[Rfam]
Small nucleolar RNA SNORA70: a 137-nucleotide RNA from Erinaceus europaeus.
Rfam links the family to the GO terms RNA processing and nucleolus.
Pairs were carried over by alignment from the consensus structure, which was predicted with PFOLD.
The source organism's lineage runs through Eukaryota, Bilateria, Eulipotyphla, Erinaceinae and Erinaceus.
Rfam describes the family as follows. snoRNA U70 seems to be exclusive to mammals and is a member of the H/ACA class of snoRNA which contain H (ANANNA) and ACA box motifs. H/ACA box snoRNAs are involved in the conversion of uridines to pseudouridines (5-ribosyluracil) a constituent of structural RNAs (transfer, ribosomal, small nuclear, and small nucleolar).
RNA sequence: CUGUUGCCAAUAACGCACACCAUGCAUUUGUGUUUCUCUAUGGAGCCUACUGUGCAACAACUGUACUAGCAACACCCAUUGUAGUAUGUACAGCCUGUUGCUUGUAUAGGUUGUCCUAAGGGUCCUAAGACACCCCU
Numbered sequence: 001c002u003g004u005u006g007c008c009a010a011u012a013a014c015g016c017a018c019a020c021c022a023u024g025c026a027u028u029u030g031u032g033u034u035u036c037u038c039u040a041u042g043g044a045g046c047c048u049a050c051u052g053u054g055c056a057a058c059a060a061c062u063g064u065a066c067u068a069g070c071a072a073c074a075c076c077c078a079u080u081g082u083a084g085u086a087u088g089u090a091c092a093g094c095c096u097g098u099u100g101c102u103u104g105u106a107u108a109g110g111u112u113g114u115c116c117u118a119a120g121g122g123u124c125c126u127a128a129g130a131c132a133c134c135c136c137u
Stems, first nucleotide, its partner, number of pairs: 002056003019051001022048001025045001027043002081124001091113006